[Rfam]
RNA: serC leader
RNA sequence: CGGCGGGACACUUCCCCCCAACGGGAAGCGCCCAUCUGAGAGGAUGGACUAC
Numbered sequence: 001c002g003g004c005g006g007g008a009c010a011c012u013u014c015c016c017c018c019c020a021a022c023g024g025g026a027a028g029c030g031c032c033c034a035u036c037u038g039a040g041a042g043g044a045u046g047g048a049c050u051a052c
Stems, first nucleotide, its partner, number of pairs: 011028006032047006
Dot-bracket structure: ..........((((((......))))))...((((((....)))))).....